[Rfam]
Nucleotides: 141
Base pairs, nucleotide, nucleotide: 003046004045005044006043007041008040009039016036017035018034019033020032049101050100051099052098053097054096055095058090061088062087065084066083068082069081102140104137105136107134108133109132110131111130112129113128114127116125117124118123
Number, partner (000 for none) and nucleotide at each position: 001000a002000u003046c004045g005044g006043c007041g008040u009039u010000g011000c012000u013000g014000u015000u016036g017035a018034g019033c020032g021000u022000u023000c024000c025000a026000c027000g028000a029000g030000g031000g032020u033019g034018u035017u036016c037000g038000c039009g040008a041007u042000u043006g044005c045004c046003g047000a048000a049101g050100u051099u052098g053097c054096u055095c056000g057000a058090c059000u060000a061088c062087u063000u064000u065084u066083g067000a068082c069081c070000a071000c072000g073000g074000a075000u076000g077000u078000a079000c080000c081069g082068g083066c084065a085000c086000u087062g088061g089000c090058g091000a092000g093000a094000a095055g096054a097053g098052c099051g100050a101049u102140g103000u104137g105136g106000a107134a108133g109132g110131g111130u112129c113128g114127g115000g116125g117124c118123g119000a120000u121000u122000u123118c124117g125116c126000c127114c128113c129112g130111g131110c132109c133108u134107u135000g136105c137104c138000u139000u140102u141000c

This 141-nucleotide sequence from Arminella tubonensis belongs to the Rfam family "Alphaproteobacterial sRNA ar35". The organism belongs to Arminella, within Bacteria. A reference for the family is del Val et al. (2012), "A survey of sRNA families in alpha-proteobacteria", RNA Biol. The family's RNA type in Rfam is small RNA.